Shown here is a 46-nucleotide RNA from Phocoena sinus, a member of the family "Histone 3' UTR stem-loop". Lineage of the source: Eukaryota > Bilateria > Euteleostomi > Cetacea > Phocoena. Pairs were carried over by alignment from the consensus structure, which is taken from published work. It scores 35 bits against the family's covariance model.
RNA sequence: CCAAAGGCUCUUUUCAGAGCCACCCAGAGGUCUCGGAAAACAGCUG
Numbered sequence: 001c002c003a004a005a006g007g008c009u010c011u012u013u014u015c016a017g018a019g020c021c022a023c024c025c026a027g028a029g030g031u032c033u034c035g036g037a038a039a040a041c042a043g044c045u046g
Stems, first nucleotide, its partner, number of pairs: 006021006